About this RNA: A member of the RNA family "mir-263 microRNA precursor family" from Cotesia congregata, 82 nucleotides long. For this family Rfam cites "Direct sequencing and expression analysis of a large number of miRNAs in Aedes aegypti and a multi-species survey of novel mosquito miRNAs" (Li et al., BMC Genomics, 2009). The family has 52 seed sequences and 368 matches in Rfam 15.1. Its family is annotated with miRNA-mediated post-transcriptional gene silencing and RISC complex in the Gene Ontology. Clan: mir-182 clan. Lineage of the source: Eukaryota > Mandibulata > Hexapoda > Insecta > Cotesia.
[Rfam]
RNA sequence: UACUGACGGGUCUUGGCACUGGAAGAAUUCACAGAUGUGCAAUUAAUAAUCGUGGAUCUUGCAAUGCCAUCACUCGCUGGUA
Numbered sequence: 001u002a003c004u005g006a007c008g009g010g011u012c013u014u015g016g017c018a019c020u021g022g023a024a025g026a027a028u029u030c031a032c033a034g035a036u037g038u039g040c041a042a043u044u045a046a047u048a049a050u051c052g053u054g055g056a057u058c059u060u061g062c063a064a065u066g067c068c069a070u071c072a073c074u075c076g077c078u079g080g081u082a
Base pairs, nucleotide, nucleotide: 003080004079005078007076008075009074010073014069015068016067017066018065020063021062023059025058026057029055030054031053032052034050